[Rfam]
RNA sequence: AUAUGGAUGAAGGAGCUCUCUUCAGUUCACUUCGAGGCAGUGAAAGGCUGACACUCAGCUGCUGACUCGUUGGUUCAAGAGCUCAUCAAUGGAAAAUGUAGAAUCAUGAUGUGUUUCUGAUCCAACGAAGCAGGAGCUGCGUUUAGUCAUGGCUGUCACGUCUUGGACUGAAGGGAGCUCCCCCUUUCCACAAU
Numbered sequence: 001a002u003a004u005g006g007a008u009g010a011a012g013g014a015g016c017u018c019u020c021u022u023c024a025g026u027u028c029a030c031u032u033c034g035a036g037g038c039a040g041u042g043a044a045a046g047g048c049u050g051a052c053a054c055u056c057a058g059c060u061g062c063u064g065a066c067u068c069g070u071u072g073g074u075u076c077a078a079g080a081g082c083u084c085a086u087c088a089a090u091g092g093a094a095a096a097u098g099u100a101g102a103a104u105c106a107u108g109a110u111g112u113g114u115u116u117c118u119g120a121u122c123c124a125a126c127g128a129a130g131c132a133g134g135a136g137c138u139g140c141g142u143u144u145a146g147u148c149a150u151g152g153c154u155g156u157c158a159c160g161u162c163u164u165g166g167a168c169u170g171a172a173g174g175g176a177g178c179u180c181c182c183c184c185u186u187u188c189c190a191c192a193a194u
Stems, first nucleotide, its partner, number of pairs: 013180008023170007036157001059136002062133003068127004076119001
Background:
Rfam assigns this 194-nucleotide sequence from Citrus unshiu to the family "MIR159 microRNA precursor family". The match comes from Rfam's covariance-model search (114 bits). Rfam 15.1 lists 3,649 matches to the family in 242 species. The family's consensus secondary structure was predicted with WAR. Gene Ontology terms of the family: miRNA-mediated post-transcriptional gene silencing and RISC complex. NCBI's taxonomy places the organism under Eukaryota, Streptophytina, Embryophyta, Pentapetalae, Citrus.